rne-II RNA: a 309-nucleotide RNA from Pseudomonas rhizosphaerae.

Nucleotides: 309
Base pairs, nucleotide, nucleotide: 014137015136016135017134023129024128025127027125028124029123030122032120036117037116038115040091041090099114100113101112102111138174139173140172141171142170177245178244179243180242181218182217183216184213185212186211187210192204193203194202195201222240223239224238225237227235252276253275254274255273256271257270258269259268287306288305289304290303291302292301293300
Number, partner (000 for none) and nucleotide at each position: 001000a002000u003000a004000c005000g006000u007000g008000u009000a010000g011000g012000g013000u014137g015136g016135a017134g018000a019000u020000g021000c022000a023129c024128a025127a026000c027125c028124g029123u030122c031000g032120g033000a034000c035000c036117g037116u038115g039000u040091a041090g042000u043000a044000c045000c046000g047000c048000g049000u050000c051000g052000c053000g054000g055000c056000a057000g058000c059000a060000a061000g062000c063000a064000g065000c066000c067000u068000c069000a070000g071000g072000c073000a074000c075000u076000u077000c078000u079000g080000c081000c082000a083000u084000g085000c086000c087000g088000g089000u090041c091040u092000u093000g094000a095000a096000c097000a098000a099114g100113a101112c102111g103000c104000u105000c106000a107000a108000g109000g110000g111102c112101g113100u114099c115038c116037a117036c118000g119000c120032c121000a122030g123029a124028c125027g126000a127025u128024u129023g130000a131000u132000u133000c134017c135016u136015c137014c138174u139173c140172c141171u142170g143000a144000c145000u146000g147000a148000g149000u150000g151000c152000u153000u154000u155000u156000g157000a158000c159000a160000c161000c162000a163000c164000a165000g166000c167000a168000a169000g170142c171141a172140g173139g174138a175000c176000g177245c178244g179243u180242c181218g182217u183216c184213g185212c186211g187210g188000u189000u190000c191000c192204g193203c194202c195201c196000c197000u198000g199000u200000u201195g202194g203193g204192c205000a206000g207000a208000u209000a210187u211186c212185g213184c214000u215000g216183g217182a218181c219000a220000c221000u222240g223239c224238a225237g226000u227235g228000g229000c230000c231000u232000a233000g234000g235227c236000c237225c238224u239223g240222u241000u242180g243179a244178c245177g246000c247000a248000c249000c250000u251000g252276a253275c254274a255273c256271c257270g258269a259268c260000c261000g262000u263000g264000a265000g266000a267000a268259g269258u270257c271256g272000u273255g274254u275253g276252u277000g278000c279000c280000g281000a282000a283000c284000g285000c286000c287306g288305u289304u290303u291302c292301c293300g294000g295000c296000a297000g298000c299000c300293c301292g302291g303290a304289a305288a306287c307000c308000g309000a
The family's consensus secondary structure is taken from published work. The organism belongs to Pseudomonas, within Bacteria.